RNA: Plastid-ndhJ 3UTR RNA
Nucleotides: 057
Stems, first nucleotide, its partner, number of pairs: 019037002022034004
Number, partner (000 for none) and nucleotide at each position: 001000u002000g003000c004000a005000u006000c007000a008000u009000u010000u011000u012000g013000u014000a015000c016000c017000g018000c019037g020036c021000a022034c023033a024032u025031c026000a027000c028000u029000u030000a031025g032024a033023u034022g035000g036020g037019u038000u039000c040000u041000a042000u043000a044000a045000a046000g047000u048000c049000a050000u051000g052000g053000a054000g055000g056000a057000g